[Rfam]
RNA: MIR6217 microRNA precursor family
RNA sequence: ACUUAUUCUGUAGCUUCUUUUAGUUAUGAUAAUUACUAUGUUAAUUUACGAGAUUAUAGUAACUCCUUGCUAAGUGGUUUACUAUAACGUUAUAUCCCUAUGUGUUAUAGUAACCUAACUAUCGUAAAUAUGUAUUAAUAUUAUCAUAAAUUAGUAUAUAAAAUUAUCGUAAAAUUUAGGUGACUACAAAAUAAAU
Numbered sequence: 001a002c003u004u005a006u007u008c009u010g011u012a013g014c015u016u017c018u019u020u021u022a023g024u025u026a027u028g029a030u031a032a033u034u035a036c037u038a039u040g041u042u043a044a045u046u047u048a049c050g051a052g053a054u055u056a057u058a059g060u061a062a063c064u065c066c067u068u069g070c071u072a073a074g075u076g077g078u079u080u081a082c083u084a085u086a087a088c089g090u091u092a093u094a095u096c097c098c099u100a101u102g103u104g105u106u107a108u109a110g111u112a113a114c115c116u117a118a119c120u121a122u123c124g125u126a127a128a129u130a131u132g133u134a135u136u137a138a139u140a141u142u143a144u145c146a147u148a149a150a151u152u153a154g155u156a157u158a159u160a161a162a163a164u165u166a167u168c169g170u171a172a173a174a175u176u177u178a179g180g181u182g183a184c185u186a187c188a189a190a191a192u193a194a195a196u
Stems, first nucleotide, its partner, number of pairs: 001196001003194005009188005015182001017180003024172011037158012052145003056141003061135001067127004074122006080112011